[Rfam]
RNA sequence: GGUUUCAAUUGGUGCAAAUCCAACACAUAGAUGAGAUGAAAAGCAAUUCCCCAUUGGUAGCAAAUAGUUAUCCAUUAAGCGGAGGAAAUAGUAU
Numbered sequence: 001g002g003u004u005u006c007a008a009u010u011g012g013u014g015c016a017a018a019u020c021c022a023a024c025a026c027a028u029a030g031a032u033g034a035g036a037u038g039a040a041a042a043g044c045a046a047u048u049c050c051c052c053a054u055u056g057g058u059a060g061c062a063a064a065u066a067g068u069u070a071u072c073c074a075u076u077a078a079g080c081g082g083a084g085g086a087a088a089u090a091g092u093a094u
Stems, first nucleotide, its partner, number of pairs: 009023004049084001051082002053075002056072006

Shown here is a 94-nucleotide sequence from Musa balbisiana, a member of the family "Plastid-rps12 3UTR RNA". Rfam's curators write: Plastid rpl20 is a non-coding RNA (ncRNA) recognised in plastids. It was found in the three prime untranslated region (3UTR) of rps12 gene, its 3UTR location sugest a role in transcript maduration. The family's RNA type in Rfam is cis-regulatory element. The family's consensus secondary structure was predicted with LocARNA. On this family, see Richter et al., Plant Commun 2023: "Retrograde signaling in plants: A critical review focusing on the GUN pathway and beyond". The source organism's lineage runs through Eukaryota, Embryophyta, Tracheophyta, Musaceae and Musa.